A member of the RNA family "mir-5928 microRNA precursor family" from Haemonchus placei, 75 nucleotides long. Its family is annotated with miRNA-mediated post-transcriptional gene silencing and RISC complex in the Gene Ontology. The base pairs follow the family's consensus structure, which was predicted with RNAalifold. The organism belongs to Haemonchus, within Eukaryota.
RNA sequence: GGCCCAAAUCUGAAGUAGAGUAGAUUAGUACUAUCAGCUGAUCCUACUAAACUACUCUACUUCGAGUUUGAGCCC
Numbered sequence: 001g002g003c004c005c006a007a008a009u010c011u012g013a014a015g016u017a018g019a020g021u022a023g024a025u026u027a028g029u030a031c032u033a034u035c036a037g038c039u040g041a042u043c044c045u046a047c048u049a050a051a052c053u054a055c056u057c058u059a060c061u062u063c064g065a066g067u068u069u070g071a072g073c074c075c
Stems, first nucleotide, its partner, number of pairs: 001074003005070005011064013025050006033042003